[Rfam]
RNA sequence: ACGACCUUACUUGAACAGGAUCUGUUCUAUAGGAUCGUACCUCUGUAUCCUUGCUCACUAAGGAGACAGGACCCCAAACCUGGUGGAUGAACCAUGGCUGUGCGAUCAGAGCGUGAUUAAUAGCCUCGCUGUCUCUGUUAGAGGCACCAAGCUGUAGAGGAUCGUUCUCAAUCGGCUUUGGCUGGUUGGGAUGGUCGCAUAGCUGUCUGACAGGCU
Numbered sequence: 001a002c003g004a005c006c007u008u009a010c011u012u013g014a015a016c017a018g019g020a021u022c023u024g025u026u027c028u029a030u031a032g033g034a035u036c037g038u039a040c041c042u043c044u045g046u047a048u049c050c051u052u053g054c055u056c057a058c059u060a061a062g063g064a065g066a067c068a069g070g071a072c073c074c075c076a077a078a079c080c081u082g083g084u085g086g087a088u089g090a091a092c093c094a095u096g097g098c099u100g101u102g103c104g105a106u107c108a109g110a111g112c113g114u115g116a117u118u119a120a121u122a123g124c125c126u127c128g129c130u131g132u133c134u135c136u137g138u139u140a141g142a143g144g145c146a147c148c149a150a151g152c153u154g155u156a157g158a159g160g161a162u163c164g165u166u167c168u169c170a171a172u173c174g175g176c177u178u179u180g181g182c183u184g185g186u187u188g189g190g191a192u193g194g195u196c197g198c199a200u201a202g203c204u205g206u207c208u209g210a211c212a213g214g215c216u
Base pairs, nucleotide, nucleotide: 001038002037003035005033006032007031013027014026015025016024017023018022043069044068045067046066048064049063050062051061052060053059079214080213081212082211097203098202099201100200101199102198103197104196105195106194107193108192110166111165112164113163120155121154122153123152124151126149128147130146131145132144133143134142135141136140167190168189169188170187171186172185173184174183175182176181
This 216-nucleotide RNA from Castanea mollissima belongs to the Rfam family "Plant small nucleolar RNA U3". Rfam's curators write: Small nucleolar RNAs (snoRNAs) are involved in the processing and modification of rRNA in the nucleolus. There are two main classes of snoRNAs: the box C/D class, and the box H/ACA class. U3 snoRNA is a member of the box C/D class. Indeed, the box C/D element is a subset of the six short sequence elements found in all U3 snoRNAs, namely boxes A, A', B, C, C', and D. The U3 snoRNA secondary structure is characterised by a small 5' domain (with boxes A and A'), and a larger 3' domain (with boxes B, C, C', and D), the two domains being linked by a single-stranded hinge. For this family Rfam cites "Comparative analysis of eukaryotic U3 snoRNA" (Marz and Stadler, RNA Biol, 2010). Pairs were carried over by alignment from the consensus structure, which is taken from published work. By type it is a C/D-box small nucleolar RNA.